[Rfam]
RNA: U12 minor spliceosomal RNA
RNA sequence: UUGCCUUAAACUAAUGAGUAAGGAAAACAAAGCGCCCGGGCGACGCCGGGCGCAGCGCUGAGCGUGCUCUCACGCGAACUCUUAUUUUUGGAGGGGGAAUAGGCUGGCCGGGUGUUGACGCUGCUUACUUUGCAGAACUCGCCUGCGCGGGCCUCCCA
Numbered sequence: 001u002u003g004c005c006u007u008a009a010a011c012u013a014a015u016g017a018g019u020a021a022g023g024a025a026a027a028c029a030a031a032g033c034g035c036c037c038g039g040g041c042g043a044c045g046c047c048g049g050g051c052g053c054a055g056c057g058c059u060g061a062g063c064g065u066g067c068u069c070u071c072a073c074g075c076g077a078a079c080u081c082u083u084a085u086u087u088u089u090g091g092a093g094g095g096g097g098a099a100u101a102g103g104c105u106g107g108c109c110g111g112g113u114g115u116u117g118a119c120g121c122u123g124c125u126u127a128c129u130u131u132g133c134a135g136a137a138c139u140c141g142c143c144u145g146c147g148c149g150g151g152c153c154u155c156c157c158a
Stems, first nucleotide, its partner, number of pairs: 004023005032053008054080002058076001096157002101154005107148001109145002112142003121135004